A member of the RNA family "6S / SsrS RNA" from Prochlorococcus marinus, 182 nucleotides long.
The sequence is in the family's curated seed alignment.
The family's consensus secondary structure is taken from published work.
RNA sequence: CCAGUACUGCUUUGUUGGUAUAGGCCUUCUCAAGUGCUCUGAUCUGACUCUCUUUCGAUUUGGGGAAGCUGUCGUGAAAGUGACGUAUACCAGCUUGUUCUGGAAACGAAGCUCCACUUUGAAUCCCCCUCUGGUUCUUCCAGGUCGAUGCUUCUUGGGCCUUACGGCAAAGCGGUACUUCC
Numbered sequence: 001c002c003a004g005u006a007c008u009g010c011u012u013u014g015u016u017g018g019u020a021u022a023g024g025c026c027u028u029c030u031c032a033a034g035u036g037c038u039c040u041g042a043u044c045u046g047a048c049u050c051u052c053u054u055u056c057g058a059u060u061u062g063g064g065g066a067a068g069c070u071g072u073c074g075u076g077a078a079a080g081u082g083a084c085g086u087a088u089a090c091c092a093g094c095u096u097g098u099u100c101u102g103g104a105a106a107c108g109a110a111g112c113u114c115c116a117c118u119u120u121g122a123a124u125c126c127c128c129c130u131c132u133g134g135u136u137c138u139u140c141c142a143g144g145u146c147g148a149u150g151c152u153u154c155u156u157g158g159g160c161c162u163u164a165c166g167g168c169a170a171a172g173c174g175g176u177a178c179u180u181c182c
Base pairs, nucleotide, nucleotide: 003179004178005177006176007175008174009173010172011171012170013169014168015167018165019164036151037150040147041146042145043144044143045142062128063127064126066124069121071119074117075116076115078113085107086106090103091102092101093100